[Rfam]
RNA sequence: CCCCGGACUUGCGUCCGGGGCGAUCACAUGCCAUGGCUUCGCCAUU
Numbered sequence: 001c002c003c004c005g006g007a008c009u010u011g012c013g014u015c016c017g018g019g020g021c022g023a024u025c026a027c028a029u030g031c032c033a034u035g036g037c038u039u040c041g042c043c044a045u046u
Stems, first nucleotide, its partner, number of pairs: 001020008033045005
Rfam assigns this 46-nucleotide RNA sequence from Rosistilla oblonga to the family "Acido-Lenti-1 RNA". NCBI's taxonomy places the organism under Bacteria, Planctomycetota, Planctomycetia, Pirellulaceae, Rosistilla. By type it is a small RNA.